[Rfam]
RNA sequence: AUAAAUACUUGUUAGGUGAGGCUCCUAUGUAAACACAGGCUGCUGCUCAGAAAUGUCGAAAGACAGGUACGGGUAGGACAAAAAUCGUCGAAUUAAGGCGUUUUUCUAAGCAGCUAAAAGCAAUGCUUUUUACGUUAUAUAGUGCUAAAACUCAACGAAGAGAAGAACU
Numbered sequence: 001a002u003a004a005a006u007a008c009u010u011g012u013u014a015g016g017u018g019a020g021g022c023u024c025c026u027a028u029g030u031a032a033a034c035a036c037a038g039g040c041u042g043c044u045g046c047u048c049a050g051a052a053a054u055g056u057c058g059a060a061a062g063a064c065a066g067g068u069a070c071g072g073g074u075a076g077g078a079c080a081a082a083a084a085u086c087g088u089c090g091a092a093u094u095a096a097g098g099c100g101u102u103u104u105u106c107u108a109a110g111c112a113g114c115u116a117a118a119a120g121c122a123a124u125g126c127u128u129u130u131u132a133c134g135u136u137a138u139a140u141a142g143u144g145c146u147a148a149a150a151c152u153c154a155a156c157g158a159a160g161a162g163a164a165g166a167a168c169u
Base pairs, nucleotide, nucleotide: 006164008162009161010160011156012155013096015152016151017150020146021145022144025142026141027140028139029138030137031136032135039114040113041112042111043110045074046073047072048071054065055064056063057062081105082104083103084102087099088098089097116130117129118128
Annotation: Shown here is a 169-nucleotide RNA sequence from Candidatus Enterococcus dunnyi, a member of the family "M-box riboswitch aptamer (ykoK leader)". It scores 141 bits against the family's covariance model. On this family, see Barrick et al., Proc Natl Acad Sci U S A 2004: "New RNA motifs suggest an expanded scope for riboswitches in bacterial genetic control". The pairing is the family consensus, mapped onto this sequence. About the family: M-box riboswitch, also know as ykoK leader is described as a metaloregulatory RNA that sense divalent metals and function as a genetic control element of genes related to divalent metal transport in bacteria. It was first reported upstream of the B.subtilis ykoK gene and genes with related functions in other bacteria. NCBI's taxonomy places the organism under Bacteria, Bacillati, Bacilli, Enterococcaceae, Enterococcus.